The family of this 73-nucleotide RNA sequence from Siccirubricoccus deserti is "Makes More Granules Regulator RNA (mmgR)". By type it is a small RNA. It scores 48 bits against the family's covariance model. SuhB later renamed mmgR (makes more granules regulator) was a putative non-coding RNA found multiple times in the Agrobacterium tumefaciens genome and related alpha-proteobacteria. Other non-coding RNAs uncovered in the same analysis include: speF, ybhL, metA, and serC.Several studies inSinorhizobium meliloti showed that suhB element is indeed a non-coding RNA:firstly it was detected on Northern blot and called Sm8RNA, secondly in an RNAseq study referred to as SmelC689.The mutant phenotype's (strain lacking the small RNA) cytoplasm contains higher content of polyhydroxybutyrate (PBH)storage granules than wild type strain. The sRNA is required to limit the PBH intracellular accumulation when the nitrogen-fixing Sinorhizobium meliloti is under condition of surplus carbon in relation to nitrogen. It has been renamed to mmgR. Further study confirmed that mmgR fine-tunes the regulation of PBH storage.Northern blot confirmed the expression of the sRNA in other rhizobia species. MmgR homologues were found in most alpha-proteobacteria. On this family, see Corbino et al., Genome Biol 2005: "Evidence for a second class of S-adenosylmethionine riboswitches and other regulatory RNA motifs in alpha-proteobacteria". Pairs were carried over by alignment from the consensus structure.

RNA sequence: GUUGUCCGCCUUUCUUGGACGUUUCCUCCCUAAACUCGGCGGCGCCUAGCGGUGCCGCCUUUUUUUGCCUACG
Numbered sequence: 001g002u003u004g005u006c007c008g009c010c011u012u013u014c015u016u017g018g019a020c021g022u023u024u025c026c027u028c029c030c031u032a033a034a035c036u037c038g039g040c041g042g043c044g045c046c047u048a049g050c051g052g053u054g055c056c057g058c059c060u061u062u063u064u065u066u067g068c069c070u071a072c073g
Stems, first nucleotide, its partner, number of pairs: 008020001010018002039058008